[Rfam]
RNA sequence: GGGGCUGCAUUGGUUUCGACGUGGGUUCGGACGCGGUGUGGUGCAUGUCGAGCUGAGUGUGCUCGUAAAACUGAUUCAAACAAACUAACUGCAAACGACGAACGUUUCGCACUCGCUGCUUAAUUGCCAGUGAGCUUUACAACAGCAGGCCGAUGGGCUGGGCAAGGGGUUUUUAGCGCAAGUUAAACGCUCCCGGCUGUAAAGAUAAUUUCAUCGGCUGGCUCCUGGCUGGGUACCUUAACCCGGGGCGAGAAAAUAGGGUGCUGGCGUCCUGUGUAGCGUGCGACUGCGCGACACAGGUGGCGAGACCUAAAUCAGACCGCUAAACAUGUAGAUCUGCCCGAACAAGGCUUGCGGACGGGGGUUCAAAUCCCCCCAGCUCCACCA
Numbered sequence: 001g002g003g004g005c006u007g008c009a010u011u012g013g014u015u016u017c018g019a020c021g022u023g024g025g026u027u028c029g030g031a032c033g034c035g036g037u038g039u040g041g042u043g044c045a046u047g048u049c050g051a052g053c054u055g056a057g058u059g060u061g062c063u064c065g066u067a068a069a070a071c072u073g074a075u076u077c078a079a080a081c082a083a084a085c086u087a088a089c090u091g092c093a094a095a096c097g098a099c100g101a102a103c104g105u106u107u108c109g110c111a112c113u114c115g116c117u118g119c120u121u122a123a124u125u126g127c128c129a130g131u132g133a134g135c136u137u138u139a140c141a142a143c144a145g146c147a148g149g150c151c152g153a154u155g156g157g158c159u160g161g162g163c164a165a166g167g168g169g170u171u172u173u174u175a176g177c178g179c180a181a182g183u184u185a186a187a188c189g190c191u192c193c194c195g196g197c198u199g200u201a202a203a204g205a206u207a208a209u210u211u212c213a214u215c216g217g218c219u220g221g222c223u224c225c226u227g228g229c230u231g232g233g234u235a236c237c238u239u240a241a242c243c244c245g246g247g248g249c250g251a252g253a254a255a256a257u258a259g260g261g262u263g264c265u266g267g268c269g270u271c272c273u274g275u276g277u278a279g280c281g282u283g284c285g286a287c288u289g290c291g292c293g294a295c296a297c298a299g300g301u302g303g304c305g306a307g308a309c310c311u312a313a314a315u316c317a318g319a320c321c322g323c324u325a326a327a328c329a330u331g332u333a334g335a336u337c338u339g340c341c342c343g344a345a346c347a348a349g350g351c352u353u354g355c356g357g358a359c360g361g362g363g364g365u366u367c368a369a370a371u372c373c374c375c376c377c378a379g380c381u382c383c384a385c386c387a
Base pairs, nucleotide, nucleotide: 001383002382003381004380005379006378007377020356021355022354023353024352025351026350027349034343035342036341038340039339040338041337044331045330046329047328048327049065050064051063052062053061054078055077056076057075058074112134113133114132115131116130117129118128135204136203137202138201139200140199149218150217151216152215153214154213221249222248223247224246225245227243228242231265232264236260267304268303271300272299273298274297275296276295279292280291281290283323284322285321289315360376361375362374363373364372
Description: This 387-nucleotide sequence from Polaromonas sp. A23 belongs to the Rfam family "transfer-messenger RNA". A search with the family's covariance model found it, with a score of 169 bits. On this family, see Williams and Bartel, RNA 1996: "Phylogenetic analysis of tmRNA secondary structure". The family's consensus secondary structure is taken from published work.